[Rfam]
RNA: Flavo-1 RNA
Organism: Flavobacterium sp. 123
RNA sequence: CUUCGGCUCGCGUGAAGGAUGGCAGUGGAGCUCUUUUAUGGGCUGCUUUUUUUUGGCAGGCCAUAAAAAGCGGGAACGUACAGCCUGACCCGCA
Numbered sequence: 001c002u003u004c005g006g007c008u009c010g011c012g013u014g015a016a017g018g019a020u021g022g023c024a025g026u027g028g029a030g031c032u033c034u035u036u037u038a039u040g041g042g043c044u045g046c047u048u049u050u051u052u053u054u055g056g057c058a059g060g061c062c063a064u065a066a067a068a069a070g071c072g073g074g075a076a077c078g079u080a081c082a083g084c085c086u087g088a089c090c091c092g093c094a
Base pairs, nucleotide, nucleotide: 016086017085018084020082021081025077026076030071031070032069036066037065038064039063040062041061043059044058045057046056047055